[Rfam]
RNA sequence: AGCACAUGUUCAGUUUUUGUCUGUUGCUGUAGGCAAAAACCUGGAACCUGGUGCUUAGAAAAAAAAAAACCCUUCUUUUGCAACCCACAGCUGAUGAACGUAUUAGUUGUGUUACUUAUAUGAAGGGACAAC
Numbered sequence: 001a002g003c004a005c006a007u008g009u010u011c012a013g014u015u016u017u018u019g020u021c022u023g024u025u026g027c028u029g030u031a032g033g034c035a036a037a038a039a040c041c042u043g044g045a046a047c048c049u050g051g052u053g054c055u056u057a058g059a060a061a062a063a064a065a066a067a068a069a070c071c072c073u074u075c076u077u078u079u080g081c082a083a084c085c086c087a088c089a090g091c092u093g094a095u096g097a098a099c100g101u102a103u104u105a106g107u108u109g110u111g112u113u114a115c116u117u118a119u120a121u122g123a124a125g126g127g128a129c130a131a132c
Base pairs, nucleotide, nucleotide: 001055002054003053004052005051008047010045013040014039015038016037017036018035019034020033025031071127072126073125076123077122079120080119086111087110088109089108090107091106092105093104094103095102
Dot-bracket structure: (((((..(.(..((((((((....(.....).))))))))....).)...)))))...............(((..((.((.....((((((((((......)))))))))).......)).)).))).....
Small nucleolar RNA SNORA40: a 132-nucleotide RNA from Eurystomus gularis.
The family's consensus secondary structure was predicted with RNAalifold.
The family's RNA type in Rfam is H/ACA-box small nucleolar RNA.
Lineage of the source: Eukaryota > Sauropsida > Dinosauria > Coelurosauria > Eurystomus.